[Rfam]
RNA sequence: CCCUGAUGAUGCAAUCCUCACACGUCUGACCUGCUGUCUGGUAUCAGAGCCUGAAAAGGUCGAACCCACUGGUACUAGCAGUAGGAGAGGAAGUAACAAUUGUUCCAGAUGGAACUGUCUGAGGGGC
Numbered sequence: 001c002c003c004u005g006a007u008g009a010u011g012c013a014a015u016c017c018u019c020a021c022a023c024g025u026c027u028g029a030c031c032u033g034c035u036g037u038c039u040g041g042u043a044u045c046a047g048a049g050c051c052u053g054a055a056a057a058g059g060u061c062g063a064a065c066c067c068a069c070u071g072g073u074a075c076u077a078g079c080a081g082u083a084g085g086a087g088a089g090g091a092a093g094u095a096a097c098a099a100u101u102g103u104u105c106c107a108g109a110u111g112g113a114a115c116u117g118u119c120u121g122a123g124g125g126g127c
Stems, first nucleotide, its partner, number of pairs: 001126004
Description: The record is a 127-nucleotide sequence from Hymenochirus boettgeri, which matches "Small nucleolar RNA SNORD22" in Rfam. The family's RNA type in Rfam is C/D-box small nucleolar RNA. It scores 102 bits against the family's covariance model. Rfam links the family to the GO terms nucleolus and RNA processing.